[Rfam]
RNA: Sense overlapping transcript RNA 2652 (sot)
Organism: Haloquadratum walsbyi
RNA sequence: AUUACCGGACUCGCAAAACCCAACCGUUUGUUCGGAAGGUGAGCCUGUCUGGGUCGGGGCGUUCUAUAAAGCGCCCAUCCUCAUCCCGUGAAAUCGCUUCGCGUGGAGUGCUUACGACGUAUGCUGAGGGAAUUAGGAAAGCCACGGGUCGGGUGACCCGUGGUCGUUUACGCCCCGAUCGCCUCG
Numbered sequence: 001a002u003u004a005c006c007g008g009a010c011u012c013g014c015a016a017a018a019c020c021c022a023a024c025c026g027u028u029u030g031u032u033c034g035g036a037a038g039g040u041g042a043g044c045c046u047g048u049c050u051g052g053g054u055c056g057g058g059g060c061g062u063u064c065u066a067u068a069a070a071g072c073g074c075c076c077a078u079c080c081u082c083a084u085c086c087c088g089u090g091a092a093a094u095c096g097c098u099u100c101g102c103g104u105g106g107a108g109u110g111c112u113u114a115c116g117a118c119g120u121a122u123g124c125u126g127a128g129g130g131a132a133u134u135a136g137g138a139a140a141g142c143c144a145c146g147g148g149u150c151g152g153g154u155g156a157c158c159c160g161u162g163g164u165c166g167u168u169u170a171c172g173c174c175c176c177g178a179u180c181g182c183c184u185c186g
Base pairs, nucleotide, nucleotide: 005052006051007050008049009048010047013044014043020039021038024035025034053079057076058075059074060073061072062070087186088185096182097181099178100177101176105174106173108171109170110169112126115123141164142163143162144161145160146159147158148157149156